[Rfam]
RNA sequence: AUACCCUUUAAGAGCUUUCCUGAGAGUGAGCCAAGGGUAGAGAAUACAGGGUACUUGUAUCCUUAUAUCCUCUUACCUUUGGUAAGGGGAUUUUUUGU
Dot-bracket structure: ..((((((.....((((.(......).)))).))))))...(.(((..((...)))))...)..(.(((((((((((...))))))))))).).....
PyrR binding site: a 98-nucleotide RNA sequence from Desulfitobacterium dichloroeliminans. Lineage of the source: Bacteria > Bacillota > Eubacteriales > Desulfitobacterium > Desulfitobacterium dichloroeliminans. The family has 41 seed sequences and 1,498 matches in Rfam 15.1. Rfam's curators write: This family represents the PyrR binding site and terminator structure. This RNA structure is found upstream of a variety of genes involved in pyrimidine biosynthesis and transport. The alignment also includes a portion of the antiterminator structure. The match comes from Rfam's covariance-model search (55 bits). Rfam links the family to the GO terms pyrimidine nucleobase transport and pyrimidine nucleobase biosynthetic process.